[Rfam]
RNA sequence: CCUGCAGCGUGCCGCAUUCCCCCCAAUCGGUACGCUGCCGAGGCGGCACCUGUUCCCCCCAAUGGGUGCCGCCCCCU
Numbered sequence: 001c002c003u004g005c006a007g008c009g010u011g012c013c014g015c016a017u018u019c020c021c022c023c024c025a026a027u028c029g030g031u032a033c034g035c036u037g038c039c040g041a042g043g044c045g046g047c048a049c050c051u052g053u054u055c056c057c058c059c060c061a062a063u064g065g066g067u068g069c070c071g072c073c074c075c076c077u
Base pairs, nucleotide, nucleotide: 002040004038005037006036007035008034009033010032011031012030013029042073043072044071045070046069047068048067049066050065051064052063053062
6C RNA: a 77-nucleotide RNA from Agromyces mediolanus. Lineage of the source: Bacteria > Actinomycetota > Micrococcales > Microbacteriaceae > Agromyces. On this family, see Weinberg et al., Nucleic Acids Res 2007: "Identification of 22 candidate structured RNAs in bacteria using the CMfinder comparative genomics pipeline". By type it is a cis-regulatory element.